[Rfam]
RNA sequence: GCGCCCUUAGCUCAGUCGGUAGAGCAAAUGGCUUUUAACCAUUGGGUCAGAAGUUCGAAUCUUCUAGGGCGUA
Number, nucleotide and partner (000 for none) at each position: 001g072002c071003g070004c069005c068006c067007u066008u000009a000010g025011c024012u023013c022014a000015g000016u000017c000018g000019g000020u000021a000022g013023a012024g011025c010026a000027a043028a042029u041030g040031g039032c000033u000034u000035u000036u000037a000038a000039c031040c030041a029042u028043u027044g000045g000046g000047u000048c000049a065050g064051a063052a062053g061054u000055u000056c000057g000058a000059a000060u000061c053062u052063u051064c050065u049066a007067g006068g005069g004070c003071g002072u001073a000
The record is a 73-nucleotide RNA from Mycoplasma todarodis, which matches "tRNA" in Rfam. The literature on the family includes a 1993 paper in Trends Biochem Sci by Hou, "The tertiary structure of tRNA and the development of the genetic code". Its Rfam clan is "tRNA clan". Its family is annotated with triplet codon-amino acid adaptor activity in the Gene Ontology. The family's consensus secondary structure is taken from published work. The organism belongs to Mycoplasma, within Bacteria. It scores 72 bits against the family's covariance model. About the family: Transfer RNA (tRNA) molecules are approximately 80 nucleotides in length. Their secondary structure includes four short double-helical elements and three loops (D, anti-codon, and T loops). Further hydrogen bonds mediate the characteristic L-shaped molecular structure. tRNAs have two regions of fundamental functional importance: the anti-codon, which is responsible for specific mRNA codon recognition, and the 3' end, to which the tRNAs corresponding amino acid is attached (by aminoacyl-tRNA synthetases). tRNAs cope with the degeneracy of the genetic code in two manners: having more than one tRNA (with a specific anti-codon) for a particular amino acid; and 'wobble' base-pairing, i.e. permitting non-standard base-pairing at the 3rd anti-codon position.